RNA sequence: AACUUUGUAAUUGAAUAGGUAUGUAUAUCAGCUCAAAUAUGGUGAGCAAGUUUCUACCCCAUGACCGUAAAUUUUGGGACUACAUAACGCUAGGGAAAUUAU
Numbered sequence: 001a002a003c004u005u006u007g008u009a010a011u012u013g014a015a016u017a018g019g020u021a022u023g024u025a026u027a028u029c030a031g032c033u034c035a036a037a038u039a040u041g042g043u044g045a046g047c048a049a050g051u052u053u054c055u056a057c058c059c060c061a062u063g064a065c066c067g068u069a070a071a072u073u074u075u076g077g078g079a080c081u082a083c084a085u086a087a088c089g090c091u092a093g094g095g096a097a098a099u100u101a102u
Stems, first nucleotide, its partner, number of pairs: 018088001020086006031047005058078004063073002
RNA: Purine riboswitch aptamer
Organism: Mycoplasmatota bacterium